Rfam assigns this 80-nucleotide RNA from Massiliimalia timonensis to the family "S10-Clostridia ribosomal protein leader".
The literature on the family includes a 2020 paper in BMC Microbiol by Eckert and Weinberg, "Discovery of 20 novel ribosomal leader candidates in bacteria and archaea".

Nucleotides: 080
Stems, first nucleotide, its partner, number of pairs: 014049003018045004025039005057078003063074003
Number, partner (000 for none) and nucleotide at each position: 001000g002000a003000u004000a005000u006000g007000c008000g009000u010000u011000g012000a013000a014049g015048c016047g017000g018045a019044a020043g021042g022000u023000u024000g025039c026038c027037g028036c029035a030000c031000u032000u033000g034000a035029u036028g037027c038026g039025g040000g041000u042021u043020u044019u045018u046000u047016c048015g049014u050000g051000g052000a053000g054000u055000a056000u057078g058077u059076c060000c061000g062000a063074u064073u065072u066000u067000a068000a069000a070000c071000c072065g073064g074063g075000c076059g077058a078057c079000c080000a
Background:
The family's consensus secondary structure is taken from published work. It is annotated as a cis-regulatory leader.